[Rfam]
This 99-nucleotide RNA from Cloacibacillus porcorum belongs to the Rfam family "Glycine riboswitch aptamer".
Pairs were carried over by alignment from the consensus structure.
Lineage of the source: Bacteria > Thermotogati > Synergistota > Synergistia > Cloacibacillus.
RNA sequence: AUGAAAGCGGCAAGAGAGACCCGUCCACUUUAACUAUGGGCGCCGAAGGGGCAAGACCAUAAGGUUGAAACUCUCAGGCAUAAGGAUUGUCGCCGGACA
Number, nucleotide and partner (000 for none) at each position: 001a000002u000003g000004a000005a000006a000007g093008c092009g091010g090011c089012a088013a087014g000015a000016g000017a000018g000019a000020c040021c039022c038023g037024u000025c000026c000027a000028c000029u000030u000031u000032a000033a000034c000035u000036a000037u023038g022039g021040g020041c000042g079043c078044c077045g075046a074047a000048g000049g073050g072051g071052c000053a000054a000055g066056a065057c000058c000059a000060u000061a000062a000063g000064g000065u056066u055067g000068a000069a000070a000071c051072u050073c049074u046075c045076a000077g044078g043079c042080a000081u000082a000083a000084g000085g000086a000087u013088u012089g011090u010091c009092g008093c007094c000095g000096g000097a000098c000099a000